A member of the RNA family "FMN riboswitch aptamer (RFN element)" from Neomoorella humiferrea, 117 nucleotides long.
The family's consensus secondary structure is taken from published work.
It scores 112 bits against the family's covariance model.
The RFN element is a highly conserved domain that is found frequently in the 5'-untranslated regions of prokaryotic mRNAs that encode for flavin mononucleotide (FMN) biosynthesis and transport proteins.
The organism belongs to Neomoorella, within Bacteria.

RNA sequence: UAACGUCCUUCGGGGUGAGGUGCAAUUCCUUACCGGCGGUAAAAGCCCGCGAGCCGUAUGGCAGACCCGGUGCAAUUCCGGGGCCGACAGUGAAAGUCUGGAUGGGAGAAGGCGUUG
Number, nucleotide and partner (000 for none) at each position: 001u000002a000003a115004c114005g113006u000007c112008c111009u110010u109011c108012g000013g000014g000015g000016u000017g000018a030019g029020g028021u000022g000023c000024a000025a000026u000027u000028c020029c019030u018031u000032a097033c096034c086035g085036g050037c049038g048039g047040u000041a000042a000043a000044a000045g084046c083047c039048c038049g037050c036051g000052a000053g062054c061055c060056g000057u000058a000059u000060g055061g054062c053063a000064g000065a000066c082067c081068c080069g079070g078071u000072g000073c000074a000075a000076u000077u000078c070079c069080g068081g067082g066083g046084c045085c035086g034087a000088c100089a099090g098091u000092g000093a000094a000095a000096g033097u032098c090099u089100g088101g000102a000103u000104g000105g000106g000107a000108g011109a010110a009111g008112g007113c005114g004115u003116u000117g000